[Rfam]
RNA sequence: GUGUUAAGUGAUGAUGUGACAUAUAAAGUGUCACAUCAUCAAGCCUAAUCACUGAUAUGUCAUUGUCACGUUAUUAAAGGUGAUAAUGUGACGAUGAAGUGUCAGUGAUAAGACAUGAAGAUGUAACACUUCGUCUUUCACGUUAUCACUCAACGAAA
Numbered sequence: 001g002u003g004u005u006a007a008g009u010g011a012u013g014a015u016g017u018g019a020c021a022u023a024u025a026a027a028g029u030g031u032c033a034c035a036u037c038a039u040c041a042a043g044c045c046u047a048a049u050c051a052c053u054g055a056u057a058u059g060u061c062a063u064u065g066u067c068a069c070g071u072u073a074u075u076a077a078a079g080g081u082g083a084u085a086a087u088g089u090g091a092c093g094a095u096g097a098a099g100u101g102u103c104a105g106u107g108a109u110a111a112g113a114c115a116u117g118a119a120g121a122u123g124u125a126a127c128a129c130u131u132c133g134u135c136u137u138u139c140a141c142g143u144u145a146u147c148a149c150u151c152a153a154c155g156a157a158a
Stems, first nucleotide, its partner, number of pairs: 002155004007150013021136001023134002026131006033124005039118003043114001045112002048109005054103005070087005
This 158-nucleotide sequence from Glycine soja belongs to the Rfam family "MIR4371 microRNA precursor family". NCBI's taxonomy places the organism under Eukaryota, Spermatophyta, rosids, fabids, Glycine subgen. Soja. Its family is annotated with RISC complex and miRNA-mediated post-transcriptional gene silencing in the Gene Ontology.